[Rfam]
RNA sequence: UUGGCAGUAUCCCUUAGGGAACUGCACUUAGCCCUAUCAUAUAAAUUUAUACUAUAUAGCUUUGAUCGUUUGCGACAAAGACUGCCAU
Numbered sequence: 001u002u003g004g005c006a007g008u009a010u011c012c013c014u015u016a017g018g019g020a021a022c023u024g025c026a027c028u029u030a031g032c033c034c035u036a037u038c039a040u041a042u043a044a045a046u047u048u049a050u051a052c053u054a055u056a057u058a059g060c061u062u063u064g065a066u067c068g069u070u071u072g073c074g075a076c077a078a079a080g081a082c083u084g085c086c087a088u
Stems, first nucleotide, its partner, number of pairs: 003027001004025005010020002057084003060080005066075003

Shown here is an 88-nucleotide RNA sequence from Pectinatus brassicae, a member of the family "pan motif". It is annotated as a cis-regulatory element.